The record is a 94-nucleotide RNA from Populus tomentosa, which matches "Small nucleolar RNA snR60/Z15/Z230/Z193/J17" in Rfam.
RNA sequence: CUGGGUCAUAUGAUGAUUACAAGCAUAGUUCAACUGAUAAUCACUGUGAUUAUAACAAAACCUUUUAGUCUUUCGCUCCUAUCUGAUGACCUCU
Numbered sequence: 001c002u003g004g005g006u007c008a009u010a011u012g013a014u015g016a017u018u019a020c021a022a023g024c025a026u027a028g029u030u031c032a033a034c035u036g037a038u039a040a041u042c043a044c045u046g047u048g049a050u051u052a053u054a055a056c057a058a059a060a061c062c063u064u065u066u067a068g069u070c071u072u073u074c075g076c077u078c079c080u081a082u083c084u085g086a087u088g089a090c091c092u093c094u
Base pairs, nucleotide, nucleotide: 004091005090006089007088008087
Record summary
Its Rfam clan is "SNORD77 clan". The family's RNA type in Rfam is C/D-box small nucleolar RNA. A search with the family's covariance model found it, with a score of 82 bits. Gene Ontology terms of the family: nucleolus and RNA processing. A reference for the family is Chen et al. (2003), "The high diversity of snoRNAs in plants: identification and comparative study of 120 snoRNA genes from Oryza sativa", Nucleic Acids Res.